[Rfam]
RNA sequence: UUCAUCACAACAAAUCCAGAUCUGUGCCCAGCAGUCCUGAUCCAGCCAGAGUAUUCGUACUCUGGUUGUGUUUCGGUUGUUAUUGCUGGACAGCUCGACGAUUCAUGGAGCCAUCAAGGGAAACAUUUCCCUCGCACAUGGUGUCAAUAUCCGGUCGACAGAUCUCAGAGAGAAUCUCAGCGGCCCGGUUUUUCUUUAUUGAAUUAGCACUCUGCCUUGAGCUCCCUCCCCGUUUCGGCGGGUUGGUGAAUUCGGUGAGGUGGCCGGGUUCCUGCUGAGGGCGUCAUAUUCCACCUCCCUUUACCGAUUUUUUUGGCCGUCGGCUGAUGAGGUUAGGGAAAAACCAUGACUUGCCAACAUAU
Numbered sequence: 001u002u003c004a005u006c007a008c009a010a011c012a013a014a015u016c017c018a019g020a021u022c023u024g025u026g027c028c029c030a031g032c033a034g035u036c037c038u039g040a041u042c043c044a045g046c047c048a049g050a051g052u053a054u055u056c057g058u059a060c061u062c063u064g065g066u067u068g069u070g071u072u073u074c075g076g077u078u079g080u081u082a083u084u085g086c087u088g089g090a091c092a093g094c095u096c097g098a099c100g101a102u103u104c105a106u107g108g109a110g111c112c113a114u115c116a117a118g119g120g121a122a123a124c125a126u127u128u129c130c131c132u133c134g135c136a137c138a139u140g141g142u143g144u145c146a147a148u149a150u151c152c153g154g155u156c157g158a159c160a161g162a163u164c165u166c167a168g169a170g171a172g173a174a175u176c177u178c179a180g181c182g183g184c185c186c187g188g189u190u191u192u193u194c195u196u197u198a199u200u201g202a203a204u205u206a207g208c209a210c211u212c213u214g215c216c217u218u219g220a221g222c223u224c225c226c227u228c229c230c231c232g233u234u235u236c237g238g239c240g241g242g243u244u245g246g247u248g249a250a251u252u253c254g255g256u257g258a259g260g261u262g263g264c265c266g267g268g269u270u271c272c273u274g275c276u277g278a279g280g281g282c283g284u285c286a287u288a289u290u291c292c293a294c295c296u297c298c299c300u301u302u303a304c305c306g307a308u309u310u311u312u313u314u315g316g317c318c319g320u321c322g323g324c325u326g327a328u329g330a331g332g333u334u335a336g337g338g339a340a341a342a343a344c345c346a347u348g349a350c351u352u353g354c355c356a357a358c359a360u361a362u
Stems, first nucleotide, its partner, number of pairs: 018165008026091001028089004033084003036079001037076004042070001044067006051060003099157005106146003110142005178274002183271001184268005197257009280355003283350005296339005303333003315325004
Rfam assigns this 362-nucleotide RNA from Blastomyces parvus to the family "A. fumigatus sRNA Afu_309".
NCBI's taxonomy places the organism under Eukaryota, Fungi, Dikarya, Eurotiomycetes, Blastomyces.
The family has 10 seed sequences and 663 matches in Rfam 15.1.
Rfam classes the family as a small RNA.